[Rfam]
RNA sequence: AUAAUGAUACUUCUGGCGAAAGUCAGUCACAUAGAAAAGAUGAUGGUGCAAGUCCAAUGU
Number, nucleotide and partner (000 for none) at each position: 001a000002u000003a000004a000005u000006g000007a000008u000009a000010c000011u000012u057013c026014u025015g024016g023017c000018g000019a000020a000021a000022g000023u016024c015025a014026g013027u043028c042029a041030c039031a000032u000033a000034g000035a000036a000037a000038a000039g030040a000041u029042g028043a027044u056045g055046g054047u000048g000049c000050a000051a000052g000053u000054c046055c045056a044057a012058u000059g000060u000
Rfam assigns this 60-nucleotide RNA from Lachnospiraceae bacterium MD335 to the family "pemK RNA". A search with the family's covariance model found it, with a score of 40 bits. Taxonomically the source falls in Lachnospiraceae (Bacteria, Bacillati, Clostridia, Lachnospirales). Pairs were carried over by alignment from the consensus structure, which is taken from published work.